[Rfam]
RNA: Salmonella enterica sRNA STnc40
Organism: Klebsiella sp. RIT-PI-d
RNA sequence: ACAGUGUCACGGCCGUCUGAGCUAAGGUCGUAAUCAAAUCUGAAAGGCGCAGAUAUCUGCGCCUUUUUU
Numbered sequence: 001a002c003a004g005u006g007u008c009a010c011g012g013c014c015g016u017c018u019g020a021g022c023u024a025a026g027g028u029c030g031u032a033a034u035c036a037a038a039u040c041u042g043a044a045a046g047g048c049g050c051a052g053a054u055a056u057c058u059g060c061g062c063c064u065u066u067u068u069u
Stems, first nucleotide, its partner, number of pairs: 002019003006013002042067011